[Rfam]
Notes:
A member of the RNA family "U4 spliceosomal RNA" from Danaus plexippus, 131 nucleotides long. Taxonomically the source falls in Danaus plexippus (Eukaryota, Eumetazoa, Lepidoptera, Glossata). A search with the family's covariance model found it, with a score of 58 bits.
RNA sequence: AAACUUGCGCAGAGGAAAUACCGUAACUAAUGAGGUUAAUCUGAGGUGUGAUGAUUGCUAGUUGGAAAACUUAAAAAACCUGUUUUCUAUUAACGUUUAUGAAACUAAGGUAUUUGUUUUUACUCUUGGAA
Number, nucleotide and partner (000 for none) at each position: 001a000002a000003a000004c000005u000006u000007g000008c000009g000010c000011a000012g000013a000014g000015g000016a000017a000018a000019u000020a052021c000022c050023g049024u048025a000026a047027c046028u045029a000030a000031u000032g000033a000034g042035g041036u000037u000038a000039a000040u000041c035042u034043g000044a000045g028046g027047u026048g024049u023050g022051a000052u020053g000054a000055u000056u000057g000058c000059u000060a000061g000062u000063u000064g000065g000066a000067a000068a000069a000070c000071u000072u000073a000074a000075a000076a000077a000078a000079c110080c109081u108082g105083u104084u103085u102086u101087c000088u099089a098090u000091u000092a000093a000094c000095g000096u000097u000098u089099a088100u000101g086102a085103a084104a083105c082106u000107a000108a081109g080110g079111u000112a000113u000114u000115u000116g000117u000118u000119u000120u000121u000122a000123c000124u000125c000126u131127u000128g000129g000130a000131a126